[Rfam]
RNA sequence: UGCCUGCAGGUUCCCUUUCCCAUUGGAUCUGAACACCAAUUUUGGUGGUUGGUUGGUUAUUAAAGGAGGAAAAGUAAAACUGAAGCUGCCCUCAUAGUGCAUGUAGUCUUAUCUAUAGCAUGUGGACUAGUUUCAAAUAAAA
Numbered sequence: 001u002g003c004c005u006g007c008a009g010g011u012u013c014c015c016u017u018u019c020c021c022a023u024u025g026g027a028u029c030u031g032a033a034c035a036c037c038a039a040u041u042u043u044g045g046u047g048g049u050u051g052g053u054u055g056g057u058u059a060u061u062a063a064a065g066g067a068g069g070a071a072a073a074g075u076a077a078a079a080c081u082g083a084a085g086c087u088g089c090c091c092u093c094a095u096a097g098u099g100c101a102u103g104u105a106g107u108c109u110u111a112u113c114u115a116u117a118g119c120a121u122g123u124g125g126a127c128u129a130g131u132u133u134c135a136a137a138u139a140a141a142a
Stems, first nucleotide, its partner, number of pairs: 003069003007065001020056003024052001027049003086130003091125002102120003
Shown here is a 142-nucleotide sequence from Pipistrellus kuhlii, a member of the family "Small nucleolar RNA SNORA61".
About the family: ACA61 is a member of the H/ACA class of snoRNA that guide the sites of modification of uridines to pseudouridines.
By type it is an H/ACA-box small nucleolar RNA.
Taxonomically the source falls in Pipistrellus (Eukaryota, Eumetazoa, Eutheria, Chiroptera).
The family has 25 seed sequences and 881 matches in Rfam 15.1.